[Rfam]
Rfam assigns this 174-nucleotide sequence from Allobosea sp. RAC05 to the family "caulobacter sRNA CC2171". By type it is a small RNA. For this family Rfam cites "Small non-coding RNAs in Caulobacter crescentus" (Landt et al., Mol Microbiol, 2008).
RNA sequence: UAACAACUGAAAGGAGGUGAUCCAGUGUCUCAUUGUCAUCAACCGCUGGUUCAAAGCGGGCAGACAGGGUCUCUUUCUCCGUGGGGGUCGUGUUCCGCCUGAGUUUUGGACCUUCAGGCCCGGUUACCGGGGCUGCGGUUCGGCAAUGGAAGGGCUGCCCGAAAGGGCGGCCCU
Numbered sequence: 001u002a003a004c005a006a007c008u009g010a011a012a013g014g015a016g017g018u019g020a021u022c023c024a025g026u027g028u029c030u031c032a033u034u035g036u037c038a039u040c041a042a043c044c045g046c047u048g049g050u051u052c053a054a055a056g057c058g059g060g061c062a063g064a065c066a067g068g069g070u071c072u073c074u075u076u077c078u079c080c081g082u083g084g085g086g087g088u089c090g091u092g093u094u095c096c097g098c099c100u101g102a103g104u105u106u107u108g109g110a111c112c113u114u115c116a117g118g119c120c121c122g123g124u125u126a127c128c129g130g131g132g133c134u135g136c137g138g139u140u141c142g143g144c145a146a147u148g149g150a151a152g153g154g155c156u157g158c159c160c161g162a163a164a165g166g167g168c169g170g171c172c173c174u
Base pairs, nucleotide, nucleotide: 016023017022031148032147033146034145035144036143037142044068047066048065050063051062069094071092095123096122097121098118099117101113103111104110127138128137129136151174152173153172154171155170156169157168158167159166160165